The record is a 90-nucleotide sequence from Desulfosporosinus sp. Sb-LF, which matches "c-di-GMP-I riboswitch aptamer" in Rfam. Pairs were carried over by alignment from the consensus structure, which is taken from published work.
[Rfam]
RNA sequence: GAGAAUGAUUAGCAAACUCAUCGAAAGAUGGGGACGCAAAGCUACGGGCCUAAUCUCUUGCUAAGGGGGAAUGGCAGCCGGGUUACCUAG
Number, nucleotide and partner (000 for none) at each position: 001g000002a000003g000004a000005a000006u000007g000008a000009u000010u000011a000012g037013c036014a000015a000016a000017c032018u031019c030020a029021u028022c027023g000024a000025a000026a000027g022028a021029u020030g019031g018032g017033g000034a000035c000036g013037c012038a000039a000040a084041g083042c082043u081044a000045c080046g079047g078048g075049c074050c073051u000052a000053a000054u000055c069056u068057c067058u066059u000060g000061c000062u000063a000064a000065g000066g058067g057068g056069g055070a000071a000072u000073g050074g049075c048076a000077g000078c047079c046080g045081g043082g042083u041084u040085a000086c000087c000088u000089a000090g000